[Rfam]
RNA: Small nucleolar RNA SNORA33
RNA sequence: UAGCCAGACAAUUGGUCUGCUUGUCUGAAUGUGUUUCUGCAGAAGUGUAGAGAAGGCUGGCAAUAGUGAUGCCAUGUUUCGAGCCGUUAGUAUAGCUUAGGUUGUUUAGGUCCCUGCAAAUGGCUACAAUG
Numbered sequence: 001u002a003g004c005c006a007g008a009c010a011a012u013u014g015g016u017c018u019g020c021u022u023g024u025c026u027g028a029a030u031g032u033g034u035u036u037c038u039g040c041a042g043a044a045g046u047g048u049a050g051a052g053a054a055g056g057c058u059g060g061c062a063a064u065a066g067u068g069a070u071g072c073c074a075u076g077u078u079u080c081g082a083g084c085c086g087u088u089a090g091u092a093u094a095g096c097u098u099a100g101g102u103u104g105u106u107u108a109g110g111u112c113c114c115u116g117c118a119a120a121u122g123g124c125u126a127c128a129a130u131g
Base pairs, nucleotide, nucleotide: 003061004060005059006058007057016043017042018041019040020039071124072123073122074121083111084110085109089105092102093101